[Rfam]
RNA: mir-184 microRNA precursor family
RNA sequence: GAUCGCACGAUUCCUUACCAUUUCUUUGUCCGGUCCGUGUGAUUAUCAUCACUGGACGGAGAACUGAUAAGGGCCUGUGACGAC
Numbered sequence: 001g002a003u004c005g006c007a008c009g010a011u012u013c014c015u016u017a018c019c020a021u022u023u024c025u026u027u028g029u030c031c032g033g034u035c036c037g038u039g040u041g042a043u044u045a046u047c048a049u050c051a052c053u054g055g056a057c058g059g060a061g062a063a064c065u066g067a068u069a070a071g072g073g074c075c076u077g078u079g080a081c082g083a084c
Base pairs, nucleotide, nucleotide: 012073013072014071015070016069017068019066020065022063023062024061025060026059027058030055031054